[Rfam]
RNA sequence: CUCUGUGGCUUCAGUGGAAAUAGUUUCAGGGCAGAAAGGAG
Numbered sequence: 001c002u003c004u005g006u007g008g009c010u011u012c013a014g015u016g017g018a019a020a021u022a023g024u025u026u027c028a029g030g031g032c033a034g035a036a037a038g039g040a041g
Stems, first nucleotide, its partner, number of pairs: 001031005008024003
RNA: L31-Firmicutes ribosomal protein leader